[Rfam]
RNA sequence: AACGCAAAACGUUCUAUCGCUGUCUCAUUUAUUUGAGGUAGAGGAAAGUCCGGGCAACACAGAGCAUCCUGCUUCCUAACGGGAAGGCGCCGACAGCCGGCGACAGCAAGUGCCACAGAGAAUAUACCGCCCGCAAGGGUAAGGGUGAAAACGUGAGGUAAGAGCUCACGGCUUUUCCGGGCGACCGGAAUUGCGGUAAACCUCAGGAGUUGAAAAACCAAAUAGGUCCUGAACGCGGAGUUGCUCGCUCCCACUCUUCGGAGAUUUCAGGAUGGGUAGGUUGUUAGAGGUUGUUGGCAACAACAACACCAGAUCAAUGAUAGAAGUUCUGCCUUGUGCGGAAAACAGAACCCGGCUUACAGCUUUGCAGCUGAU
Numbered sequence: 001a002a003c004g005c006a007a008a009a010c011g012u013u014c015u016a017u018c019g020c021u022g023u024c025u026c027a028u029u030u031a032u033u034u035g036a037g038g039u040a041g042a043g044g045a046a047a048g049u050c051c052g053g054g055c056a057a058c059a060c061a062g063a064g065c066a067u068c069c070u071g072c073u074u075c076c077u078a079a080c081g082g083g084a085a086g087g088c089g090c091c092g093a094c095a096g097c098c099g100g101c102g103a104c105a106g107c108a109a110g111u112g113c114c115a116c117a118g119a120g121a122a123u124a125u126a127c128c129g130c131c132c133g134c135a136a137g138g139g140u141a142a143g144g145g146u147g148a149a150a151a152c153g154u155g156a157g158g159u160a161a162g163a164g165c166u167c168a169c170g171g172c173u174u175u176u177c178c179g180g181g182c183g184a185c186c187g188g189a190a191u192u193g194c195g196g197u198a199a200a201c202c203u204c205a206g207g208a209g210u211u212g213a214a215a216a217a218c219c220a221a222a223u224a225g226g227u228c229c230u231g232a233a234c235g236c237g238g239a240g241u242u243g244c245u246c247g248c249u250c251c252c253a254c255u256c257u258u259c260g261g262a263g264a265u266u267u268c269a270g271g272a273u274g275g276g277u278a279g280g281u282u283g284u285u286a287g288a289g290g291u292u293g294u295u296g297g298c299a300a301c302a303a304c305a306a307c308a309c310c311a312g313a314u315c316a317a318u319g320a321u322a323g324a325a326g327u328u329c330u331g332c333c334u335u336g337u338g339c340g341g342a343a344a345a346c347a348g349a350a351c352c353c354g355g356c357u358u359a360c361a362g363c364u365u366u367g368c369a370g371c372u373g374a375u
Stems, first nucleotide, its partner, number of pairs: 004368005010362001011360001012325007020041008046358003050355005055212004064259001067208005072086005087104001088102004105203002110201002112197003127144002129140004152170006175190006216282004226273006254263003290307007

This 375-nucleotide RNA sequence from Mucilaginibacter auburnensis belongs to the Rfam family "Bacterial RNase P class A". The family's consensus secondary structure is taken from published work.